[Rfam]
RNA sequence: CGGUCUGCCCCGUCGAGUCCGGACGUGUCCGGAGCCGGGGACCCACUUGUGUUCCGGGGUGAAUCGGGACGGCCCUUCCGGGCCGGACCGUAGGGCGACCUUCCGACAGCCCGAACCCGACAGCUAACCCGGUAGGCGGUCCACGGAAGGAGC
Dot-bracket structure: ..........((((...(((((......)))))((((((....(...........)(((.....(((....................)))..((((............))))...))).........)))))).))))...............
RNA: c-di-AMP riboswitch aptamer (ydaO/yuaA leader)
Organism: Streptomyces sp. DJ